[Rfam]
RNA sequence: GGCAUUAAGGUGGGUGGAAUAAUAUAACAAUUCACUCUUGUUAUAGUAUUCCACCUACCCUGAUUCC
Numbered sequence: 001g002g003c004a005u006u007a008a009g010g011u012g013g014g015u016g017g018a019a020u021a022a023u024a025u026a027a028c029a030a031u032u033c034a035c036u037c038u039u040g041u042u043a044u045a046g047u048a049u050u051c052c053a054c055c056u057a058c059c060c061u062g063a064u065u066c067c
Base pairs, nucleotide, nucleotide: 004064005063006062007061009059010058011057012056013055014054015053016052017051019049020048021047023045024044025043026042027041028040029039030038
Rfam assigns this 67-nucleotide RNA sequence from Danio rerio to the family "mir-2985 microRNA precursor family". From the family's description: RNAs can be post-transcriptional modified, in micro RNAs (miRNA) editing of pre-mRNA is a common process. The base pairs follow the family's consensus structure, which was predicted with RNAalifold. Lineage of the source: Eukaryota > Euteleostomi > Actinopteri > Danioninae > Danio.